[Rfam]
RNA sequence: AAAGGACGAGUGGUGCGGACUUCGGCACAUCGGAACUCAUUCGUCAUUCAAUAAUCAUCAAUGGUUUUCCUUUCCCUUUGCCGUUGAGUAAU
Numbered sequence: 001a002a003a004g005g006a007c008g009a010g011u012g013g014u015g016c017g018g019a020c021u022u023c024g025g026c027a028c029a030u031c032g033g034a035a036c037u038c039a040u041u042c043g044u045c046a047u048u049c050a051a052u053a054a055u056c057a058u059c060a061a062u063g064g065u066u067u068u069c070c071u072u073u074c075c076c077u078u079u080g081c082c083g084u085u086g087a088g089u090a091a092u
Stems, first nucleotide, its partner, number of pairs: 005045007013028004
RNA: RAGATH-35 RNA
Organism: Variimorphobacter saccharofermentans